About this RNA: This 74-nucleotide RNA from Fusarium mundagurra belongs to the Rfam family "tRNA". Transfer RNA (tRNA) molecules are approximately 80 nucleotides in length. The source organism's lineage runs through Eukaryota, Opisthokonta, Ascomycota, saccharomyceta and Fusarium fujikuroi species complex. By type it is a transfer RNA.
RNA sequence: GGUUGCGUGGUCUAGUUGGUUAUGGCAUCUCGCUCACACCGAGAAGGUCCCCGGUUCGAUCCCGGGCGCAACCA
Numbered sequence: 001g002g003u004u005g006c007g008u009g010g011u012c013u014a015g016u017u018g019g020u021u022a023u024g025g026c027a028u029c030u031c032g033c034u035c036a037c038a039c040c041g042a043g044a045a046g047g048u049c050c051c052c053g054g055u056u057c058g059a060u061c062c063c064g065g066g067c068g069c070a071a072c073c074a
Base pairs, nucleotide, nucleotide: 001073002072003071004070005069006068007067010026011025012024028044029043030042031041032040050066051065052064053063054062